[Rfam]
RNA sequence: UGUCUCCUCCACUCCCCCAAGGAUGGAUUCGGCCCGCCGGCAACGGCGGGCUUUUUUUC
Numbered sequence: 001u002g003u004c005u006c007c008u009c010c011a012c013u014c015c016c017c018c019a020a021g022g023a024u025g026g027a028u029u030c031g032g033c034c035c036g037c038c039g040g041c042a043a044c045g046g047c048g049g050g051c052u053u054u055u056u057u058u059c
Stems, first nucleotide, its partner, number of pairs: 008027004031052008

A member of the RNA family "Betaproteobacteria toxic small RNA" from Noviherbaspirillum pedocola, 59 nucleotides long. For this family Rfam cites "Identification of small RNAs abundant in Burkholderia cenocepacia biofilms reveal putative regulators with a potential role in carbon and iron metabolism" (Sass et al., Sci Rep, 2017). Taxonomically the source falls in Noviherbaspirillum (Bacteria, Pseudomonadota, Betaproteobacteria, Oxalobacteraceae). Rfam 15.1 lists 951 matches to the family in 508 species. From the family's description: Overexpression in amino aid rich medium attenuates growth, suggesting role in repressing amino acid intake and metabolism.